The record is a 58-nucleotide sequence, which matches "Na+ riboswitch aptamer (DUF1646)" in Rfam.
The literature on the family includes a 2022 paper in Nat Chem Biol by White et al., "Na(+) riboswitches regulate genes for diverse physiological processes in bacteria".
Gene Ontology terms of the family: regulation of gene expression and sodium ion binding.
RNA sequence: GGUUGGGUUUUUACACAAAAUAAAAACUUUCAAGAUUUGCUUCUUUGGGUCAAGAAGC
Numbered sequence: 001g002g003u004u005g006g007g008u009u010u011u012u013a014c015a016c017a018a019a020a021u022a023a024a025a026a027c028u029u030u031c032a033a034g035a036u037u038u039g040c041u042u043c044u045u046u047g048g049g050u051c052a053a054g055a056a057g058c
Base pairs, nucleotide, nucleotide: 003033004032005031006028007027008026009025010024011023012022013021039058040057041056042055043054044053045052